[Rfam]
RNA sequence: UUACCCGUCUUAACUGGUGAACCUUAAAUUGUGCCAGAUUAAAAUUUGGCUAUUUGCUGGAAACCGUUGAUAAUUUCUACGCAAUCAGCAGGAAACCCAAUCGACUAGGGUCCGUUGGGGAUCCUCAGAGACUAAACGCCAGAAUUAAUUGGUUGUUAAAAUUUUUAAGAAUUUAAGCCUGUGUUUUCCCCACUUCGAAUCAAGAUAAAAAACCUUUUUGGGGGUUCCUAUUUGGUACUUCGUUCCUCGGAUAAAGGCAUUUACAAAAUUUUUACAAUUGUUCAAACUAUUAAUAAGAUAUAGUCCCUUCCGUUAUGUAAAUAAUGG
Numbered sequence: 001u002u003a004c005c006c007g008u009c010u011u012a013a014c015u016g017g018u019g020a021a022c023c024u025u026a027a028a029u030u031g032u033g034c035c036a037g038a039u040u041a042a043a044a045u046u047u048g049g050c051u052a053u054u055u056g057c058u059g060g061a062a063a064c065c066g067u068u069g070a071u072a073a074u075u076u077c078u079a080c081g082c083a084a085u086c087a088g089c090a091g092g093a094a095a096c097c098c099a100a101u102c103g104a105c106u107a108g109g110g111u112c113c114g115u116u117g118g119g120g121a122u123c124c125u126c127a128g129a130g131a132c133u134a135a136a137c138g139c140c141a142g143a144a145u146u147a148a149u150u151g152g153u154u155g156u157u158a159a160a161a162u163u164u165u166u167a168a169g170a171a172u173u174u175a176a177g178c179c180u181g182u183g184u185u186u187u188c189c190c191c192a193c194u195u196c197g198a199a200u201c202a203a204g205a206u207a208a209a210a211a212a213c214c215u216u217u218u219u220g221g222g223g224g225u226u227c228c229u230a231u232u233u234g235g236u237a238c239u240u241c242g243u244u245c246c247u248c249g250g251a252u253a254a255a256g257g258c259a260u261u262u263a264c265a266a267a268a269u270u271u272u273u274a275c276a277a278u279u280g281u282u283c284a285a286a287c288u289a290u291u292a293a294u295a296a297g298a299u300a301u302a303g304u305c306c307c308u309u310c311c312g313u314u315a316u317g318u319a320a321a322u323a324a325u326g327g
Stems, first nucleotide, its partner, number of pairs: 001020005045143004050138001055090006065081003069077001091124002096119004103112003128306001130305005146292004151287001153285002312325005

Annotation
Shown here is a 327-nucleotide RNA sequence from Smittium simulii, a member of the family "Group I catalytic intron". It scores 89 bits against the family's covariance model. The organism belongs to Smittium, within Eukaryota. Rfam describes the family as follows. Group I catalytic introns are large self-splicing ribozymes.